RNA sequence: AGUCAUUCCAAGCCGAAGCCACGCGGAACGCAUGGCGCGGGGGACCCAAGUUCAGGGGUGAAGCCGUACCGCUGGAUGGUACGGCGGGGGAACGCUUGGACCCCUAACCCGGCAGCUAACCUCGCAGGCAUACACCAAGGGAGGA
Numbered sequence: 001a002g003u004c005a006u007u008c009c010a011a012g013c014c015g016a017a018g019c020c021a022c023g024c025g026g027a028a029c030g031c032a033u034g035g036c037g038c039g040g041g042g043g044a045c046c047c048a049a050g051u052u053c054a055g056g057g058g059u060g061a062a063g064c065c066g067u068a069c070c071g072c073u074g075g076a077u078g079g080u081a082c083g084g085c086g087g088g089g090g091a092a093c094g095c096u097u098g099g100a101c102c103c104c105u106a107a108c109c110c111g112g113c114a115g116c117u118a119a120c121c122u123c124g125c126a127g128g129c130a131u132a133c134a135c136c137a138a139g140g141g142a143g144g145a
Stems, first nucleotide, its partner, number of pairs: 012129003018036003037125006047055001056110003064084008087104004

Shown here is a 145-nucleotide sequence from Cohnella thailandensis, a member of the family "c-di-AMP riboswitch aptamer (ydaO/yuaA leader)".